[Rfam]
RNA sequence: GCGCUGGCUUUAGCUCAGCAGUUAUUUCGAUUUCACUCAAAUCCCUCUAGUCACGUGUUUGCAGCUCGUCAACUACGGACACUGUCCAGCACACUA
Number, nucleotide and partner (000 for none) at each position: 001g000002c000003g090004c089005u088006g087007g086008c000009u000010u000011u000012a000013g080014c000015u078016c077017a000018g076019c000020a074021g073022u000023u000024a000025u000026u000027u000028c068029g067030a066031u000032u000033u000034c000035a000036c000037u000038c000039a000040a000041a000042u000043c000044c000045c000046u000047c000048u000049a000050g000051u000052c000053a000054c000055g000056u000057g000058u000059u000060u000061g000062c000063a000064g000065c000066u030067c029068g028069u000070c000071a000072a000073c021074u020075a000076c018077g016078g015079a000080c013081a000082c000083u000084g000085u000086c007087c006088a005089g004090c003091a000092c000093a000094c000095u000096a000
The record is a 96-nucleotide RNA sequence from Chiloscyllium punctatum, which matches "Vault RNA" in Rfam. The organism belongs to Chiloscyllium, within Eukaryota. About the family: This family of RNAs are found as part of the enigmatic vault ribonucleoprotein complex. By type it is a non-coding RNA gene.